[Rfam]
A member of the RNA family "mir-57 microRNA precursor family" from Ancylostoma ceylanicum, 80 nucleotides long. Gene Ontology terms of the family: miRNA-mediated post-transcriptional gene silencing and RISC complex. The match comes from Rfam's covariance-model search (44 bits).
RNA sequence: CUUCCCUCGUCUACCCUGUAGUACCGAAUAGUGUCUGAUUCGUGCAUACACUUUCGGUUACAAGGUGCAUGAAGUGGAUU
Numbered sequence: 001c002u003u004c005c006c007u008c009g010u011c012u013a014c015c016c017u018g019u020a021g022u023a024c025c026g027a028a029u030a031g032u033g034u035c036u037g038a039u040u041c042g043u044g045c046a047u048a049c050a051c052u053u054u055c056g057g058u059u060a061c062a063a064g065g066u067g068c069a070u071g072a073a074g075u076g077g078a079u080u
Stems, first nucleotide, its partner, number of pairs: 012067004018061004024057002027054002030052005037045001